Overview:
Shown here is a 178-nucleotide RNA, a member of the family "rncO". Gene Ontology term of the family: regulation of mRNA stability. A reference for the family is Matsunaga et al. (1996), "RNase III autoregulation: structure and function of rncO, the posttranscriptional 'operator'", RNA. It scores 43 bits against the family's covariance model.

RNA sequence: AAACAUUCAGUGUUUGGAUAAAUGUCCGAUAUAGCAACCGCAAGCAAGGUUCACAGACUAACAGCGGGUGACGUCUGUGAACCUUGCUUGCGGUUGCUAUAUCGCUGAUUAAUGCUAUUUUUGGCCGCAUGUUUCCCAUGUACAUGAAUAGUGCAUUGUGCUGGCUAUCUUUUUUAUC
Numbered sequence: 001a002a003a004c005a006u007u008c009a010g011u012g013u014u015u016g017g018a019u020a021a022a023u024g025u026c027c028g029a030u031a032u033a034g035c036a037a038c039c040g041c042a043a044g045c046a047a048g049g050u051u052c053a054c055a056g057a058c059u060a061a062c063a064g065c066g067g068g069u070g071a072c073g074u075c076u077g078u079g080a081a082c083c084u085u086g087c088u089u090g091c092g093g094u095u096g097c098u099a100u101a102u103c104g105c106u107g108a109u110u111a112a113u114g115c116u117a118u119u120u121u122u123g124g125c126c127g128c129a130u131g132u133u134u135c136c137c138a139u140g141u142a143c144a145u146g147a148a149u150a151g152u153g154c155a156u157u158g159u160g161c162u163g164g165c166u167a168u169c170u171u172u173u174u175u176a177u178c
Stems, first nucleotide, its partner, number of pairs: 013031001015029001017027001018025002032099015049082006062070002149163006